[Rfam]
RNA sequence: UAGGGCACAAUGAGGAAUCUAAGUCCACAUUUGGAUGAGGUCCACAAAGGCCUGUGAGCAAUUGAUUAAUAUGUCCUUUUCAUUCUGAGUGCCCU
Number, nucleotide and partner (000 for none) at each position: 001u000002a000003g000004g093005g092006c091007a090008c089009a000010a083011u082012g081013a080014g079015g000016a000017a000018u000019c000020u000021a000022a000023g000024u000025c000026c000027a000028c000029a000030u000031u000032u000033g000034g000035a000036u000037g000038a000039g000040g059041u058042c000043c000044a000045c000046a000047a000048a000049g000050g000051c000052c000053u000054g000055u000056g000057a000058g041059c040060a000061a000062u000063u000064g000065a000066u000067u000068a000069a000070u000071a000072u000073g000074u000075c000076c000077u000078u000079u014080u013081c012082a011083u010084u000085c000086u000087g000088a000089g008090u007091g006092c005093c004094c000095u000